[Rfam]
RNA sequence: AAACCCGGUUGAAACAAGAUUUAUCGUGAGGAGUCAGCAGAGGCCAUAGUACAUCGGUGUUCUAGACAUCGAUGGAAGGGC
Numbered sequence: 001a002a003a004c005c006c007g008g009u010u011g012a013a014a015c016a017a018g019a020u021u022u023a024u025c026g027u028g029a030g031g032a033g034u035c036a037g038c039a040g041a042g043g044c045c046a047u048a049g050u051a052c053a054u055c056g057g058u059g060u061u062c063u064a065g066a067c068a069u070c071g072a073u074g075g076a077a078g079g080g081c
Stems, first nucleotide, its partner, number of pairs: 001021002005018001008015002034041002043081003052074006

Rfam assigns this 81-nucleotide RNA from Desulfosporosinus sp. HMP52 to the family "Group II catalytic intron D1-D4-1". The base pairs follow the family's consensus structure. Rfam 15.1 lists 2,508 matches to the family in 1,144 species. On this family, see Bonen and Vogel, Trends Genet 2001: "The ins and outs of group II introns". Rfam describes the family as follows. Group II introns are found in rRNA, tRNA and mRNA of organelles in fungi, plants and protists, and also in mRNA in bacteria.